[Rfam]
RNA sequence: CAAACCGGUAGAGGCGCGUCUUUCAUCAGUAACCGGGCAUCAGAUUGCCAAAGUCGUUUAAAGGGCCGGAGAAAGGGACAGACGCCGAAGGGGAUGCGCUUGGCGGGCGCGCCUCUGGGGGUAUUUCCGAAAAGGGGUGCCACUGUCAUCAUUGCAGUAUGAUGGAGCGCUAUGGGGAGG
Numbered sequence: 001c002a003a004a005c006c007g008g009u010a011g012a013g014g015c016g017c018g019u020c021u022u023u024c025a026u027c028a029g030u031a032a033c034c035g036g037g038c039a040u041c042a043g044a045u046u047g048c049c050a051a052a053g054u055c056g057u058u059u060a061a062a063g064g065g066c067c068g069g070a071g072a073a074a075g076g077g078a079c080a081g082a083c084g085c086c087g088a089a090g091g092g093g094a095u096g097c098g099c100u101u102g103g104c105g106g107g108c109g110c111g112c113c114u115c116u117g118g119g120g121g122u123a124u125u126u127c128c129g130a131a132a133a134g135g136g137g138u139g140c141c142a143c144u145g146u147c148a149u150c151a152u153u154g155c156a157g158u159a160u161g162a163u164g165g166a167g168c169g170c171u172a173u174g175g176g177g178a179g180g
Base pairs, nucleotide, nucleotide: 006175008173009172010171011170016085017084018083019082020081021080023078024077033069034068035067036066038064089116090115091114092113093112095111096110097109098108099107100106117144118143120141121140122139123138124137125136126135127134146165147164148163149162150161151160152159
The record is a 180-nucleotide sequence from Anaerotruncus sp. G3(2012), which matches "Lysine riboswitch aptamer" in Rfam. A search with the family's covariance model found it, with a score of 101 bits. Lineage of the source: Bacteria > Bacillati > Bacillota > Clostridia > Anaerotruncus.